RNA sequence: UUGCGUCCACUGAUAGCCCUUAAGCAACUUCCAUUGGCGUAAGGGUUUGCAAAGUGAUGCUACACUAAAUCUUCUUCGUACUUCCUGACUGCUCCAUUACAUAGCAGCACAGAUUGAAUUGAGGAAUACAUUC
Numbered sequence: 001u002u003g004c005g006u007c008c009a010c011u012g013a014u015a016g017c018c019c020u021u022a023a024g025c026a027a028c029u030u031c032c033a034u035u036g037g038c039g040u041a042a043g044g045g046u047u048u049g050c051a052a053a054g055u056g057a058u059g060c061u062a063c064a065c066u067a068a069a070u071c072u073u074c075u076u077c078g079u080a081c082u083u084c085c086u087g088a089c090u091g092c093u094c095c096a097u098u099a100c101a102u103a104g105c106a107g108c109a110c111a112g113a114u115u116g117a118a119u120u121g122a123g124g125a126a127u128a129c130a131u132u133c
Stems, first nucleotide, its partner, number of pairs: 003060005011051002014049003018045002025036003073125006081116001085112003089107005
Dot-bracket structure: ..(((((...((.(((.((.....(((......))).......)).)))))....)))))............((((((..(...(((.(((((.........)))))..)))...)...))))))........
A member of the RNA family "Small nucleolar RNA SNORA31" from Pleuronectes platessa, 133 nucleotides long. Rfam 15.1 lists 2,094 matches to the family in 626 species. Pairs were carried over by alignment from the consensus structure, which was predicted with RNAalifold. A reference for the family is Huttenhofer et al. (2001), "RNomics: an experimental approach that identifies 201 candidates for novel, small, non-messenger RNAs in mouse", EMBO J. Its family is annotated with RNA processing and nucleolus in the Gene Ontology.